The record is a 102-nucleotide RNA from Lentibacillus salicampi, which matches "Purine riboswitch aptamer" in Rfam.
[Rfam]
RNA sequence: AACAAUACAACUUGAUAGUUGCGUAUAAUUCUGGGGAUACGGCCCAAGAGUCUCUACCGGACCACCGUAAAUGGUCUGACUACGCAGGAUUGAGUCAUGAUG
Numbered sequence: 001a002a003c004a005a006u007a008c009a010a011c012u013u014g015a016u017a018g019u020u021g022c023g024u025a026u027a028a029u030u031c032u033g034g035g036g037a038u039a040c041g042g043c044c045c046a047a048g049a050g051u052c053u054c055u056a057c058c059g060g061a062c063c064a065c066c067g068u069a070a071a072u073g074g075u076c077u078g079a080c081u082a083c084g085c086a087g088g089a090u091u092g093a094g095u096c097a098u099g100a101u102g
Base pairs, nucleotide, nucleotide: 019087020086021085022084023083024082025081029049030048032046033045034044035043058078059077060076061075062074063073064072
Gene Ontology term of the family: purine nucleobase biosynthetic process. The source organism's lineage runs through Bacteria, Bacillati, Bacilli, Caryophanales and Lentibacillus.